Shown here is a 123-nucleotide sequence, a member of the family "LOOT RNA".
Rfam classes the family as a small RNA.
Nucleotides: 123
Stems, first nucleotide, its partner, number of pairs: 001038004010030004015026004045086011061075004088107008108123006
Number, partner (000 for none) and nucleotide at each position: 001038u002037g003036c004035c005000u006000a007000a008000c009000c010030c011029u012028u013027g014000c015026g016025a017024g018023u019000u020000g021000a022000a023018a024017c025016u026015c027013c028012a029011a030010g031000a032000u033000a034000u035004g036003g037002c038001a039000c040000a041000a042000a043000a044000a045086c046085u047084a048083u049082c050081c051080c052079u053078a054077g055076u056000a057000g058000u059000a060000a061075g062074c063073u064072c065000c066000u067000c068000g069000u070000c071000a072064g073063a074062g075061c076055a077054c078053u079052a080051g081050g082049g083048a084047u085046a086045g087000u088107c089106a090105u091104a092103g093102u094101c095100c096000g097000a098000a099000a100095g101094g102093a103092u104091u105090a106089u107088g108123g109122g110121u111120a112119g113118c114000g115000a116000a117000a118113g119112c120111u121110a122109c123108c